This 268-nucleotide part of an RNA from Candidatus Caldarchaeum subterraneum belongs to the Rfam family "Archaeal large subunit ribosomal RNA".
RNA sequence: GAGUUCACCGUCGUGGCGAGCUUAACCGCGGAAAGCGGGUAGGCGCGGGGAAACCGAGAAGCCCGCAGCCGACUCUCGUCGGCGAGGGGCCGGGUCCGAACAGGGCCCGUAGUCACGGCGGUGAGGCUAGAAACCGGGCGAUCUAGCCCUGGGUAGGGUGAAGCCGGGCGAAAGCUCGGUCGAGGCCCGAACGCGUCCUGACGUGCAAUUCGGUGCGUUGACCUGGGGCUAGGGGCUAAAAACCAAUCUAGCCCGGUGAUAGCUAGUU
Numbered sequence: 001g002a003g004u005u006c007a008c009c010g011u012c013g014u015g016g017c018g019a020g021c022u023u024a025a026c027c028g029c030g031g032a033a034a035g036c037g038g039g040u041a042g043g044c045g046c047g048g049g050g051a052a053a054c055c056g057a058g059a060a061g062c063c064c065g066c067a068g069c070c071g072a073c074u075c076u077c078g079u080c081g082g083c084g085a086g087g088g089g090c091c092g093g094g095u096c097c098g099a100a101c102a103g104g105g106c107c108c109g110u111a112g113u114c115a116c117g118g119c120g121g122u123g124a125g126g127c128u129a130g131a132a133a134c135c136g137g138g139c140g141a142u143c144u145a146g147c148c149c150u151g152g153g154u155a156g157g158g159u160g161a162a163g164c165c166g167g168g169c170g171a172a173a174g175c176u177c178g179g180u181c182g183a184g185g186c187c188c189g190a191a192c193g194c195g196u197c198c199u200g201a202c203g204u205g206c207a208a209u210u211c212g213g214u215g216c217g218u219u220g221a222c223c224u225g226g227g228g229c230u231a232g233g234g235g236c237u238a239a240a241a242a243c244c245a246a247u248c249u250a251g252c253c254c255g256g257u258g259a260u261a262g263c264u265a266g267u268u
Stems, first nucleotide, its partner, number of pairs: 005124013020044004026038004048055002061090004068083006093107004127266002130263001134256006143232011154220001156188004163180007192217004197213002200211002234244002
Source information: For this family Rfam cites "Crystal structure of the ribosome at 5.5 A resolution" (Yusupov et al., Science, 2001).